[Rfam]
RNA sequence: CUACGAAGAUGAGAUGUUUGAACUCUCUCUUUCUGAAGCUUCAGUGGAGAAAGCCUUUACCAGAUUCUGAGUAGC
Numbered sequence: 001c002u003a004c005g006a007a008g009a010u011g012a013g014a015u016g017u018u019u020g021a022a023c024u025c026u027c028u029c030u031u032u033c034u035g036a037a038g039c040u041u042c043a044g045u046g047g048a049g050a051a052a053g054c055c056u057u058u059a060c061c062a063g064a065u066u067c068u069g070a071g072u073a074g075c
Stems, first nucleotide, its partner, number of pairs: 001074004
This 75-nucleotide sequence from Salvator merianae belongs to the Rfam family "Small nucleolar RNA SNORD26". The family's consensus secondary structure was predicted with PFOLD. Rfam classes the family as a C/D-box small nucleolar RNA.